The record is a 68-nucleotide sequence from Gopherus evgoodei, which matches "mir-33 microRNA precursor family" in Rfam. For this family Rfam cites "Direct sequencing and expression analysis of a large number of miRNAs in Aedes aegypti and a multi-species survey of novel mosquito miRNAs" (Li et al., BMC Genomics, 2009).
[Rfam]
RNA sequence: CUGUGGUGCAUUGUAGUUGCAUUGCAUGUGUGAGAACAGGUGUGCAAUGCCCCUGCAGUGCAGCCCAG
Numbered sequence: 001c002u003g004u005g006g007u008g009c010a011u012u013g014u015a016g017u018u019g020c021a022u023u024g025c026a027u028g029u030g031u032g033a034g035a036a037c038a039g040g041u042g043u044g045c046a047a048u049g050c051c052c053c054u055g056c057a058g059u060g061c062a063g064c065c066c067a068g
Base pairs, nucleotide, nucleotide: 001068002067003066006064007062008061009060010059011058012057013056014055015054016053019050021048022047023046024045025044026043027042
Rfam links the family to the GO terms RISC complex and gene silencing by miRNA.